Acido-Lenti-1 RNA: a 45-nucleotide sequence from Bacteroidetes bacterium B1(2017).
RNA sequence: CGAUGGGCUUUGCCCAUCGUUGAUGUAUGGCGCCCUUUCAGGGCU
Numbered sequence: 001c002g003a004u005g006g007g008c009u010u011u012g013c014c015c016a017u018c019g020u021u022g023a024u025g026u027a028u029g030g031c032g033c034c035c036u037u038u039c040a041g042g043g044c045u
Stems, first nucleotide, its partner, number of pairs: 001019008032044005

The family's RNA type in Rfam is small RNA.
A search with the family's covariance model found it, with a score of 37 bits.
Taxonomically the source falls in Bacteroidota (Bacteria, Pseudomonadati).
The base pairs follow the family's consensus structure, which is taken from published work.